[Rfam]
RNA sequence: CAUCCCUUGACCUAGCGAGCACGCCAGUAGCAUCUCCGCAAGCUGCUCGUCUACAUCAGGGGAAAGAGA
Numbered sequence: 001c002a003u004c005c006c007u008u009g010a011c012c013u014a015g016c017g018a019g020c021a022c023g024c025c026a027g028u029a030g031c032a033u034c035u036c037c038g039c040a041a042g043c044u045g046c047u048c049g050u051c052u053a054c055a056u057c058a059g060g061g062g063a064a065a066g067a068g069a
Base pairs, nucleotide, nucleotide: 003063004062005061006060007059008058015050016049017048018047019046020045021044